[Rfam]
RNA sequence: AGCCAUGAACCGUGAGGAAAAUGUCUCCCCUUGCGGAUCGGCGAUAAAAAAAAUGACAAAGGAG
Numbered sequence: 001a002g003c004c005a006u007g008a009a010c011c012g013u014g015a016g017g018a019a020a021a022u023g024u025c026u027c028c029c030c031u032u033g034c035g036g037a038u039c040g041g042c043g044a045u046a047a048a049a050a051a052a053a054u055g056a057c058a059a060a061g062g063a064g
Stems, first nucleotide, its partner, number of pairs: 004041001007039002010036008

Shown here is a 64-nucleotide RNA sequence, a member of the family "L20-Deltaproteobacteria ribosomal protein leader". Rfam classes the family as a cis-regulatory leader. A reference for the family is Eckert and Weinberg (2020), "Discovery of 20 novel ribosomal leader candidates in bacteria and archaea", BMC Microbiol.